Rfam assigns this 143-nucleotide sequence from Sporomusa silvacetica to the family "Group II catalytic intron D1-D4-4". The family has 90 seed sequences and 840 matches in Rfam 15.1. From the family's description: Group II introns are found in rRNA, tRNA and mRNA of organelles in fungi, plants and protists, and also in mRNA in bacteria. Rfam links the family to the GO term Group II intron splicing. Taxonomically the source falls in Sporomusa silvacetica (Bacteria, Negativicutes, Selenomonadales, Sporomusaceae). Pairs were carried over by alignment from the consensus structure.
[Rfam]
RNA sequence: UUAUGGGUGAAAGUCCCAUCCCGGUAACUACCAAGAGGCCGGGUAGCUAAUCCCGGUGCGUCGCCGAAAUGCGGGGUGCUGAGCGGGAGGAUAAAGUACCUGCCUAGAAAGCAAGGCGAGCGAAGAUAUAGGCCGUAACAUAA
Numbered sequence: 001u002u003a004u005g006g007g008u009g010a011a012a013g014u015c016c017c018a019u020c021c022c023g024g025u026a027a028c029u030a031c032c033a034a035g036a037g038g039c040c041g042g043g044u045a046g047c048u049a050a051u052c053c054c055g056g057u058g059c060g061u062c063g064c065c066g067a068a069a070u071g072c073g074g075g076g077u078g079c080u081g082a083g084c085g086g087g088a089g090g091a092u093a094a095a096g097u098a099c100c101u102g103c104c105u106a107g108a109a110a111g112c113a114a115g116g117c118g119a120g121c122g123a124a125g126a127u128a129u130a131g132g133c134c135g136u137a138a139c140a141u142a143a
Stems, first nucleotide, its partner, number of pairs: 020043005051088004055080005064071001096117001099115001101113003120136003